[Rfam]
RNA: c-di-GMP-I riboswitch aptamer
RNA sequence: ACAGAAUAACGGCACACUAAUCGAAAGGUUAGGUCGCAAAACUUUGGAGUCUAAAAGUCACAAUGACUAAUGAUCGUCCGGUUGCAUUG
Numbered sequence: 001a002c003a004g005a006a007u008a009a010c011g012g013c014a015c016a017c018u019a020a021u022c023g024a025a026a027g028g029u030u031a032g033g034u035c036g037c038a039a040a041a042c043u044u045u046g047g048a049g050u051c052u053a054a055a056a057g058u059c060a061c062a063a064u065g066a067c068u069a070a071u072g073a074u075c076g077u078c079c080g081g082u083u084g085c086a087u088u089g
Base pairs, nucleotide, nucleotide: 012037013036017032018031019030020029021028022027040083041082042081043080046079047078048077049074050073051072056068057067058066059065